The record is a 47-nucleotide RNA from Macrostomum lignano, which matches "Guanidine-II riboswitch aptamer (mini-ykkC)" in Rfam. The family's consensus secondary structure is taken from published work. Gene Ontology term of the family: regulation of gene expression. From the family's description: Simpler in structure and has fewer highly conserved nucleotide positions than the ykkC-yxkD leader.
RNA sequence: CGUCCGGGACGACCGGGACGACCACCAGGGCGUCCGGGACGACCUGG
Numbered sequence: 001c002g003u004c005c006g007g008g009a010c011g012a013c014c015g016g017g018a019c020g021a022c023c024a025c026c027a028g029g030g031c032g033u034c035c036g037g038g039a040c041g042a043c044c045u046g047g
Stems, first nucleotide, its partner, number of pairs: 001020005007014002034047005